[Rfam]
RNA sequence: AUGCAUCUAUUUGACACACCUGGUGCAGUAACUGCCUGUUUCUAAGGUUUACGCUACAGAUCCAAGAAAAAAUUCCUCACACUUUCUGUCUGUCUGCUCUUGUGGCAGCUAAGAUUGAAUAGGGGAAUGCAGGU
Numbered sequence: 001a002u003g004c005a006u007c008u009a010u011u012u013g014a015c016a017c018a019c020c021u022g023g024u025g026c027a028g029u030a031a032c033u034g035c036c037u038g039u040u041u042c043u044a045a046g047g048u049u050u051a052c053g054c055u056a057c058a059g060a061u062c063c064a065a066g067a068a069a070a071a072a073u074u075c076c077u078c079a080c081a082c083u084u085u086c087u088g089u090c091u092g093u094c095u096g097c098u099c100u101u102g103u104g105g106c107a108g109c110u111a112a113g114a115u116u117g118a119a120u121a122g123g124g125g126a127a128u129g130c131a132g133g134u
Base pairs, nucleotide, nucleotide: 002064003063005061006060007059008058012053013052016050018048019047020046023041025039026038027037028036074126075125076124077123078122082117085114086113087112090108091107092106093105094104
The family of this 134-nucleotide RNA from Chrysochloris asiatica is "Small nucleolar RNA SNORA31". Taxonomically the source falls in Chrysochloris (Eukaryota, Metazoa, Chordata, Afrotheria). A reference for the family is Huttenhofer et al. (2001), "RNomics: an experimental approach that identifies 201 candidates for novel, small, non-messenger RNAs in mouse", EMBO J. Rfam links the family to the GO terms nucleolus and RNA processing. ACA31 (SNORA31) belongs to the H/ACA class of snoRNAs which are thought to guide the sites of modification of uridines to pseudouridines. ACA31 is predicted to guide the pseudouridylation of U3713 in 28S rRNA and U218 in 18S rRNA. This family includes the mouse homologue snoMBI-161. Pairs were carried over by alignment from the consensus structure, which was predicted with RNAalifold.